Streptococcus sRNA SpF59 (ldcC RNA): a 76-nucleotide RNA sequence. The sequence is in the family's curated seed alignment.

RNA sequence: UGACCAUUUCUUUAUCCGGUAAAUCGAGAACGAUAAAGAGAUUAAAUGCCAUACGGACAGCUAGGUCGAAUGCCGG
Numbered sequence: 001u002g003a004c005c006a007u008u009u010c011u012u013u014a015u016c017c018g019g020u021a022a023a024u025c026g027a028g029a030a031c032g033a034u035a036a037a038g039a040g041a042u043u044a045a046a047u048g049c050c051a052u053a054c055g056g057a058c059a060g061c062u063a064g065g066u067c068g069a070a071u072g073c074c075g076g
Stems, first nucleotide, its partner, number of pairs: 001068005006042011